[Rfam]
RNA sequence: GGAUUGAUGCCUCGUCACCGGUAGUUAAUAUUGCAUUGACCAGAAGUGAUGCUAGAAUUGAAACUAUAACAAACUCUUGUGUGCUUCGGAUUAGGAACCUGUGAACUGCUUUGUUACCCUUCAUUCAAAGAGCCGUUUUGUGUGAUUACAUUC
Numbered sequence: 001g002g003a004u005u006g007a008u009g010c011c012u013c014g015u016c017a018c019c020g021g022u023a024g025u026u027a028a029u030a031u032u033g034c035a036u037u038g039a040c041c042a043g044a045a046g047u048g049a050u051g052c053u054a055g056a057a058u059u060g061a062a063a064c065u066a067u068a069a070c071a072a073a074c075u076c077u078u079g080u081g082u083g084c085u086u087c088g089g090a091u092u093a094g095g096a097a098c099c100u101g102u103g104a105a106c107u108g109c110u111u112u113g114u115u116a117c118c119c120u121u122c123a124u125u126c127a128a129a130g131a132g133c134c135g136u137u138u139u140g141u142g143u144g145a146u147u148a149c150a151u152u153c
Base pairs, nucleotide, nucleotide: 002064004061005060006059007058008057013051014050015049016048017047018046020041021040022039024034025033086145087144088143090141094134095133099130100129103126104125105124
Shown here is a 153-nucleotide sequence from Artemisia annua, a member of the family "Small nucleolar RNA snoR2/U65". The organism belongs to Artemisia, within Eukaryota. Gene Ontology terms of the family: RNA processing and nucleolus. The base pairs follow the family's consensus structure, which was predicted with WAR. On this family, see Shaw et al., J Cell Sci 1998: "Localization and processing from a polycistronic precursor of novel snoRNAs in maize". It is annotated as an H/ACA-box small nucleolar RNA.